[Rfam]
RNA sequence: GUGGGCUAUGGAGAUAUGAGGCCGGUGACGUUAUGGGGAAAGCUCAUUGGUUCGUUGUGUGCGAUAGCCGGUGUGCUCACGAUUGCCUUGCCUGUGCCAGUUAUUGUAUCUAAU
Dot-bracket structure: ((.((.(((((.(((..(..((..............((.(.........((.........))...........).))................)).)..))).))))).)).))
Numbered sequence: 001g002u003g004g005g006c007u008a009u010g011g012a013g014a015u016a017u018g019a020g021g022c023c024g025g026u027g028a029c030g031u032u033a034u035g036g037g038g039a040a041a042g043c044u045c046a047u048u049g050g051u052u053c054g055u056u057g058u059g060u061g062c063g064a065u066a067g068c069c070g071g072u073g074u075g076c077u078c079a080c081g082a083u084u085g086c087c088u089u090g091c092c093u094g095u096g097c098c099a100g101u102u103a104u105u106g107u108a109u110c111u112a113a114u
Stems, first nucleotide, its partner, number of pairs: 001114002004111002007108005013102003018097001021095002037077002040074001050062002
This 114-nucleotide RNA sequence from Paragonimus skrjabini miyazakii belongs to the Rfam family "Potassium channel RNA editing signal".
Its family is annotated with adenosine to inosine editing in the Gene Ontology.
From the family's description: This family represents a group of sequences related to the human potassium channel Kv1.1 hairpin element which directs the efficient modification of an adenosine to inosine by an adenosine deaminase acting on RNA (ADAR).